[Rfam]
RNA: c-di-AMP riboswitch aptamer (ydaO/yuaA leader)
Organism: Actinomadura kijaniata
RNA sequence: UUCGCCGUUGCGCCCUGUCCGGGCGCGCGAAGCCGGGGACCCAAUCUCCCCUGGGGUGAAUCGGCCGCCACGACGCGGCCGUAGGGCAGCUUCCACGCCCGAACCCGUCAGCUAACCCGGUAGGCGGUAUGGAAGCCAAGG
Numbered sequence: 001u002u003c004g005c006c007g008u009u010g011c012g013c014c015c016u017g018u019c020c021g022g023g024c025g026c027g028c029g030a031a032g033c034c035g036g037g038g039a040c041c042c043a044a045u046c047u048c049c050c051c052u053g054g055g056g057u058g059a060a061u062c063g064g065c066c067g068c069c070a071c072g073a074c075g076c077g078g079c080c081g082u083a084g085g086g087c088a089g090c091u092u093c094c095a096c097g098c099c100c101g102a103a104c105c106c107g108u109c110a111g112c113u114a115a116c117c118c119g120g121u122a123g124g125c126g127g128u129a130u131g132g133a134a135g136c137c138a139a140g141g
Base pairs, nucleotide, nucleotide: 001031002030003029004028005027032121033120034119035118036117037116042053043052054106055105056104062081063080064079065078066077067076084100085099086098087097